The record is a 128-nucleotide RNA sequence from Jaculus jaculus, which matches "Small nucleolar RNA SNORA33" in Rfam. The organism belongs to Jaculus, within Eukaryota. Gene Ontology terms of the family: RNA processing and nucleolus. Rfam's curators write: ACA33 is a member of the H/ACA class of snoRNA that guide the sites of modification of uridines to pseudouridines.

[Rfam]
RNA sequence: CAACCAGCCAAUUAGUCUGCUUAUCUGAAUGUUUCUGCUGAACUGUUGAAAAACUGGCAAUAGUGAUGCCUUGUUAUGAACCUUAAGGACAACUGAGGUCAUUAAGAUCCCUGAAAAUAGCUAUAAUA
Numbered sequence: 001c002a003a004c005c006a007g008c009c010a011a012u013u014a015g016u017c018u019g020c021u022u023a024u025c026u027g028a029a030u031g032u033u034u035c036u037g038c039u040g041a042a043c044u045g046u047u048g049a050a051a052a053a054c055u056g057g058c059a060a061u062a063g064u065g066a067u068g069c070c071u072u073g074u075u076a077u078g079a080a081c082c083u084u085a086a087g088g089a090c091a092a093c094u095g096a097g098g099u100c101a102u103u104a105a106g107a108u109c110c111c112u113g114a115a116a117a118u119a120g121c122u123a124u125a126a127u128a
Stems, first nucleotide, its partner, number of pairs: 004057004016041002019038002068121002080108001082106005088100003